[Rfam]
RNA: Bacteroidetes FopS (family of paralogous sRNAs)
Organism: Muribaculaceae bacterium Isolate-110
RNA sequence: AAGUUUUUCAUGGUAUUAGAUUUAAGGUAGAAAAGUUAUUCGUCGCGAUGACGAGUAAUUUUUUUUUG
Number, nucleotide and partner (000 for none) at each position: 001a000002a000003g000004u000005u000006u000007u000008u000009c000010a000011u000012g000013g000014u000015a000016u000017u000018a000019g000020a000021u000022u000023u000024a000025a000026g000027g000028u000029a000030g000031a000032a000033a000034a000035g000036u000037u000038a056039u055040u054041c053042g052043u051044c050045g000046c000047g000048a000049u000050g044051a043052c042053g041054a040055g039056u038057a000058a000059u000060u000061u000062u000063u000064u000065u000066u000067u000068g000